A member of the RNA family "THF (Tetrahydrofolate) riboswitch aptamer" from Anaerococcus prevotii, 90 nucleotides long. Rfam describes the family as follows. Tetrahydrofolate (THF) riboswitch was first reported for Ames et al. as an RNA motif in 5' untranslated (5'-UTR)regions of folate transport and biosynthesis genes in Firmicutes genomes. Taxonomically the source falls in Anaerococcus prevotii (Bacteria, Bacillati, Tissierellia, Anaerococcus).
[Rfam]
RNA sequence: AUCAGAGUAGAUAAAGAGCAUUAAGUGUUAAGAAAUGGGUUGUUGUUCUUAAACGAAGCAAAUGCAUGAUUCUUUAUCGCAACCGCUGCC
Numbered sequence: 001a002u003c004a005g006a007g008u009a010g011a012u013a014a015a016g017a018g019c020a021u022u023a024a025g026u027g028u029u030a031a032g033a034a035a036u037g038g039g040u041u042g043u044u045g046u047u048c049u050u051a052a053a054c055g056a057a058g059c060a061a062a063u064g065c066a067u068g069a070u071u072c073u074u075u076a077u078c079g080c081a082a083c084c085g086c087u088g089c090c
Base pairs, nucleotide, nucleotide: 003088004087005086010078011077012076013075014074015073016072017071018070019068020067021066025054026053028052029051030050031049032048033047034046038084039083040082041081042080058065059064